[Rfam]
RNA sequence: AAAGAGGCAGCCGAAAAUCUUGAACAGAGUAGGCA
Number, nucleotide and partner (000 for none) at each position: 001a000002a021003a020004g019005a018006g000007g000008c000009a000010g034011c033012c032013g000014a000015a000016a000017a000018u005019c004020u003021u002022g000023a000024a000025c000026a000027g000028a000029g000030u000031a000032g012033g011034c010035a000
The family of this 35-nucleotide RNA sequence from Pedobacter sp. MC2016-24 is "DUF805b RNA".